[Rfam]
RNA sequence: GAGUUCUGAGGACGGAACUGGUAGCCGUAGCCCAUCAUAAGAUGUAGGAGAUGUGGGAGUACCAUCCCACCUAACUC
Numbered sequence: 001g002a003g004u005u006c007u008g009a010g011g012a013c014g015g016a017a018c019u020g021g022u023a024g025c026c027g028u029a030g031c032c033c034a035u036c037a038u039a040a041g042a043u044g045u046a047g048g049a050g051a052u053g054u055g056g057g058a059g060u061a062c063c064a065u066c067c068c069a070c071c072u073a074a075c076u077c
Stems, first nucleotide, its partner, number of pairs: 001077005008071001012028004019064005031048001033044004053070005
skipping-rope RNA: a 77-nucleotide RNA sequence. By type it is a small RNA.